Overview: A member of the RNA family "glmS glucosamine-6-phosphate activated ribozyme aptamer" from Tepidibacillus sp. HK-1, 160 nucleotides long. From the family's description: This entry contains a glucosamine-6-phosphate activated ribozyme that is found in the mRNA for GlmS. GlmS is an enzyme that uses fructose-6-phosphate and glutamine to generate glucosamine-6-phosphate. Pairs were carried over by alignment from the consensus structure, which is taken from published work.

RNA sequence: AAGGAAAUAAAAGCGCCUGAACUACUACUGAGUAAGUAGUUGACGAGGAGAAGGUUUAUCGAGCUUUCGGCGGGUACCUUCCGGUAGACAUGAAUACCGUUAAUAUAAGUGUUGAAAAAGAAGGGGUGACCCUUCUGACAAAGCCUUAUAGUCAUGUUUA
Numbered sequence: 001a002a003g004g005a006a007a008u009a010a011a012a013g014c015g016c017c018u019g020a021a022c023u024a025c026u027a028c029u030g031a032g033u034a035a036g037u038a039g040u041u042g043a044c045g046a047g048g049a050g051a052a053g054g055u056u057u058a059u060c061g062a063g064c065u066u067u068c069g070g071c072g073g074g075u076a077c078c079u080u081c082c083g084g085u086a087g088a089c090a091u092g093a094a095u096a097c098c099g100u101u102a103a104u105a106u107a108a109g110u111g112u113u114g115a116a117a118a119a120g121a122a123g124g125g126g127u128g129a130c131c132c133u134u135c136u137g138a139c140a141a142a143g144c145c146u147u148a149u150a151g152u153c154a155u156g157u158u159u160a
Base pairs, nucleotide, nucleotide: 020041021040022039023038024037025036026035050081051080052079053078054077059070060069061068062067082099083098084097085096086095104150105149106148107147108146109145111144119136120135121134122133123132124131125130